[Rfam]
RNA sequence: AAGGAAAAUGUGUAGGGAGGGUGAGAGCCCUCGACAGGGUUCGCACAGCGGCGAAGCCGCGCAACGUCGGCUUGCCGACGGCCCCGAAGGGGUGAGGAACGAAGUGACGAAUCAUCCCUCCCUCACCGCCA
Numbered sequence: 001a002a003g004g005a006a007a008a009u010g011u012g013u014a015g016g017g018a019g020g021g022u023g024a025g026a027g028c029c030c031u032c033g034a035c036a037g038g039g040u041u042c043g044c045a046c047a048g049c050g051g052c053g054a055a056g057c058c059g060c061g062c063a064a065c066g067u068c069g070g071c072u073u074g075c076c077g078a079c080g081g082c083c084c085c086g087a088a089g090g091g092g093u094g095a096g097g098a099a100c101g102a103a104g105u106g107a108c109g110a111a112u113c114a115u116c117c118c119u120c121c122c123u124c125a126c127c128g129c130c131a
Stems, first nucleotide, its partner, number of pairs: 015122007022114001032094002035091001040088004048058001065080006

Background: The family of this 131-nucleotide RNA sequence from Grimontia hollisae is "RtT RNA". It scores 81 bits against the family's covariance model. Rfam describes the family as follows. This family represents a bacterial cis-regulatory element known as RtT RNA. The exact function of RtT is unknown although it is thought that it may be involved in changing the cellular response in relation to amino acid starvation. Rfam 15.1 lists 651 matches to the family in 204 species. Pairs were carried over by alignment from the consensus structure, which is taken from published work. Lineage of the source: Bacteria > Pseudomonadati > Pseudomonadota > Grimontia > Grimontia hollisae. The family's RNA type in Rfam is cis-regulatory element.